Rfam assigns this 31-nucleotide RNA sequence to the family "S4-Flavobacteria ribosomal protein leader". The base pairs follow the family's consensus structure, which is taken from published work. For this family Rfam cites "Discovery of 20 novel ribosomal leader candidates in bacteria and archaea" (Eckert and Weinberg, BMC Microbiol, 2020).
[Rfam]
RNA sequence: AACUAGCGAAGGAUAGCCUUAAUUCUUAGUU
Numbered sequence: 001a002a003c004u005a006g007c008g009a010a011g012g013a014u015a016g017c018c019u020u021a022a023u024u025c026u027u028a029g030u031u
Stems, first nucleotide, its partner, number of pairs: 001031006008025001009020004